[Rfam]
RNA sequence: GUAAUACAAACACGCCGAGCCUUGCACGCUAACCCUGACUAUCAGGUAUGGGUGUCUGGCCGUAGCCAAGCAUGAUAUUUCGUUAUGUUUUCGCUGCCAGGGUCAAAAGGGAAACCGAUUGGCCUCCCGACUUUGGAAAGGUGAAAUGUUAAAAGACGU
Number, nucleotide and partner (000 for none) at each position: 001g000002u000003a000004a000005u000006a150007c000008a000009a000010a000011c000012a000013c143014g142015c141016c140017g000018a000019g060020c059021c058022u000023u000024g055025c054026a053027c052028g000029c050030u000031a000032a000033c000034c046035c045036u044037g000038a000039c000040u000041a000042u000043c000044a036045g035046g034047u000048a000049u000050g029051g000052g027053u026054g025055u024056c000057u000058g021059g020060c019061c000062g097063u096064a095065g094066c093067c000068a000069a000070g000071c000072a000073u000074g000075a000076u000077a000078u000079u000080u000081c000082g000083u000084u000085a000086u000087g000088u000089u000090u000091u000092c000093g066094c065095u064096g063097c062098c000099a000100g125101g124102g123103u122104c121105a120106a119107a000108a000109g116110g115111g000112a000113a000114a000115c110116c109117g000118a000119u106120u105121g104122g103123c102124c101125u100126c136127c135128c000129g000130a000131c000132u000133u000134u000135g127136g126137a000138a000139a000140g016141g015142u014143g013144a000145a000146a000147u000148g000149u000150u006151a000152a000153a000154a000155g000156a000157c000158g000159u000
The family of this 159-nucleotide sequence from Thalassotalea sp. HSM 43 is "Molybdenum/Tungsten riboswitch aptamer (Moco RNA motif)".
Lineage of the source: Bacteria > Pseudomonadota > Gammaproteobacteria > Alteromonadales > Thalassotalea.
For this family Rfam cites "Identification of 22 candidate structured RNAs in bacteria using the CMfinder comparative genomics pipeline" (Weinberg et al., Nucleic Acids Res, 2007).
The match comes from Rfam's covariance-model search (74 bits).
The base pairs follow the family's consensus structure, which is taken from published work.